Pseudomonas rpsL leader: a 121-nucleotide RNA sequence from Pseudomonas sp. HPB0071. A search with the family's covariance model found it, with a score of 85 bits. The literature on the family includes a 2010 paper in Genome Biol by Naville and Gautheret, "Premature terminator analysis sheds light on a hidden world of bacterial transcriptional attenuation".
RNA sequence: GGUCAGGGCUUCGUAUUGACGGUACGGGAGAACCUCUUUAGACUUUCGUACCCCGAAAAUUGGCAGGGCCCAUGGUCCUGCCAUUUCGUUUGUGUCGUAAGACAAUCAGUGGAGCUAUAGA
Number, nucleotide and partner (000 for none) at each position: 001g000002g000003u000004c018005a017006g016007g000008g014009c013010u000011u000012c000013g009014u008015a000016u006017u005018g004019a000020c000021g000022g053023u000024a000025c000026g049027g000028g047029a046030g045031a044032a000033c000034c041035u040036c000037u000038u000039u000040a035041g034042a000043c000044u031045u030046u029047c028048g000049u026050a000051c000052c000053c022054c000055g000056a000057a000058a000059a000060u000061u083062g082063g081064c080065a079066g078067g077068g076069c075070c000071c000072a000073u000074g000075g069076u068077c067078c066079u065080g064081c063082c062083a061084u000085u000086u000087c000088g000089u000090u000091u000092g115093u114094g103095u102096c101097g000098u000099a000100a000101g096102a095103c094104a000105a000106u000107c000108a000109g000110u000111g000112g000113a000114g093115c092116u000117a000118u000119a000120g000121a000